[Rfam]
RNA sequence: GUUACUUUGAAUGUGGAUGGUGUUCAGCACCAAGGACAGGAAUGUUUGUGUGUGGAUGGUGUUCAGCACCAAGGACAGAUAUGCUUGUUU
Numbered sequence: 001g002u003u004a005c006u007u008u009g010a011a012u013g014u015g016g017a018u019g020g021u022g023u024u025c026a027g028c029a030c031c032a033a034g035g036a037c038a039g040g041a042a043u044g045u046u047u048g049u050g051u052g053u054g055g056a057u058g059g060u061g062u063u064c065a066g067c068a069c070c071a072a073g074g075a076c077a078g079a080u081a082u083g084c085u086u087g088u089u090u
Stems, first nucleotide, its partner, number of pairs: 006079004018071007026063007034051001036049003